[Rfam]
RNA: mir-449 microRNA precursor family
Organism: Scyliorhinus torazame
RNA sequence: AAGAUGUGGCGGUUAGGCAGUGUACUGCUAGCUGGCUGUUGUGUCUGACAGGUCAGCAGCUGCUAGCUACACUCCACACUGCUGCAUCUG
Number, nucleotide and partner (000 for none) at each position: 001a000002a089003g088004a087005u086006g085007u084008g083009g082010c081011g080012g079013u078014u000015a000016g075017g074018c000019a073020g072021u071022g070023u069024a068025c000026u000027g067028c066029u065030a064031g063032c062033u000034g060035g000036c000037u000038g000039u000040u000041g054042u000043g000044u000045c000046u000047g000048a000049c000050a000051g000052g000053u000054c041055a000056g000057c000058a000059g000060c034061u000062g032063c031064u030065a029066g028067c027068u024069a023070c022071a021072c020073u019074c017075c016076a000077c000078a013079c012080u011081g010082c009083u008084g007085c006086a005087u004088c003089u002090g000